[Rfam]
RNA sequence: CGAGUUGGCCAGACAGUUGCCGCGCUCAAUAGAGCGGGGAGGAAAGUCCGGGCUUCAUAGAGCAGGGUACCAGGUAACGCCUGGGCGGUGUGAACCGACGACAAGUGCAGCAGAGAGAAGACCGCCAGUCUUCGGAUUGGUAAGGGUGAAAGGGUGCGGUAAGAGCGCACCGUGCGGCUGGUAACAGUCCGUAGCAAGGUAAACUCUACCCGAAGCAAGACCAAAUAGGGUUCCACUAUUCUUAGGAAUUAAUGCGUGGCUCGCGUUGGAACCGGGUAGGUCGCUUGAGCCUGUGAGCGAUUGCAGGCCUAGAUGAAUAACUGUCCACGACAGGACCCGGCUUAUCGGCCAACUCAACAC
Numbered sequence: 001c002g003a004g005u006u007g008g009c010c011a012g013a014c015a016g017u018u019g020c021c022g023c024g025c026u027c028a029a030u031a032g033a034g035c036g037g038g039g040a041g042g043a044a045a046g047u048c049c050g051g052g053c054u055u056c057a058u059a060g061a062g063c064a065g066g067g068u069a070c071c072a073g074g075u076a077a078c079g080c081c082u083g084g085g086c087g088g089u090g091u092g093a094a095c096c097g098a099c100g101a102c103a104a105g106u107g108c109a110g111c112a113g114a115g116a117g118a119a120g121a122c123c124g125c126c127a128g129u130c131u132u133c134g135g136a137u138u139g140g141u142a143a144g145g146g147u148g149a150a151a152g153g154g155u156g157c158g159g160u161a162a163g164a165g166c167g168c169a170c171c172g173u174g175c176g177g178c179u180g181g182u183a184a185c186a187g188u189c190c191g192u193a194g195c196a197a198g199g200u201a202a203a204c205u206c207u208a209c210c211c212g213a214a215g216c217a218a219g220a221c222c223a224a225a226u227a228g229g230g231u232u233c234c235a236c237u238a239u240u241c242u243u244a245g246g247a248a249u250u251a252a253u254g255c256g257u258g259g260c261u262c263g264c265g266u267u268g269g270a271a272c273c274g275g276g277u278a279g280g281u282c283g284c285u286u287g288a289g290c291c292u293g294u295g296a297g298c299g300a301u302u303g304c305a306g307g308c309c310u311a312g313a314u315g316a317a318u319a320a321c322u323g324u325c326c327a328c329g330a331c332a333g334g335a336c337c338c339g340g341c342u343u344a345u346c347g348g349c350c351a352a353c354u355c356a357a358c359a360c
Base pairs, nucleotide, nucleotide: 002355003354004353005352006351007350008349009348010347011345012325013324014323015322016321017320018319020039021038023036024035025034026033027032044343045342046341048340049339050338051337052336053215054214055213056212060261063258065211066210067209068208069207070084071083072082073081074080085099086097087096088095089094100206101205105204106203107200108199122145123144124141125140126139127138128137129136130135153171154170155169156168157167158166172195173193174192175191176190177189178187179186180185219282220281221280222279229273230272231271232270233269234268252266253265254264255263256262289308290307291306292305293304294303295302296301
Rfam assigns this 360-nucleotide RNA sequence from Shewanella loihica to the family "Bacterial RNase P class A". Rfam links the family to the GO terms tRNA processing, ribonuclease P activity and dimeric ribonuclease P complex. From the family's description: Ribonuclease P (RNase P) is a ubiquitous endoribonuclease, found in archaea, bacteria and eukarya as well as chloroplasts and mitochondria. Its best characterised activity is the generation of mature 5'-ends of tRNAs by cleaving the 5'-leader elements of precursor-tRNAs. Cellular RNase Ps are ribonucleoproteins. RNA from bacterial RNase Ps retains its catalytic activity in the absence of the protein subunit, i.e. it is a ribozyme. The sequence is in the family's curated seed alignment. NCBI's taxonomy places the organism under Bacteria, Pseudomonadati, Pseudomonadota, Alteromonadales, Shewanella loihica. The family's RNA type in Rfam is ribozyme.